[Rfam]
Annotation: The record is a 130-nucleotide RNA from Neotoma lepida, which matches "Small nucleolar RNA SNORA28" in Rfam. ACA28 is a member of the H/ACA class of snoRNA that guide the sites of modification of uridines to pseudouridines. Its family is annotated with RNA processing and nucleolus in the Gene Ontology.
RNA sequence: AAGCAACACUGUGACAGAUGAACAAACUAUCUGACACAAUUUGAGCUUGCUAUAGCAAGAAAGUCUAACCUAUUCCGGUUAGAAGUAUUCUCUUCCUCAUGAGACAAGCCGUUGUAUAGGCUCAAACAAU
Number, nucleotide and partner (000 for none) at each position: 001a000002a000003g000004c000005a000006a000007c000008a000009c043010u038011g037012u036013g035014a000015c033016a032017g031018a030019u029020g028021a000022a000023c000024a000025a000026a000027c000028u020029a019030u018031c017032u016033g015034a000035c013036a012037c011038a010039a000040u000041u000042u000043g009044a000045g000046c000047u000048u000049g000050c000051u000052a000053u000054a000055g000056c000057a000058a000059g000060a000061a000062a122063g121064u120065c119066u118067a117068a000069c000070c000071u116072a115073u114074u000075c000076c111077g110078g109079u108080u000081a000082g000083a000084a000085g000086u000087a000088u000089u000090c000091u104092c103093u102094u101095c000096c000097u000098c000099a000100u000101g094102a093103g092104a091105c000106a000107a000108g079109c078110c077111g076112u000113u000114g073115u072116a071117u067118a066119g065120g064121c063122u062123c000124a000125a000126a000127c000128a000129a000130u000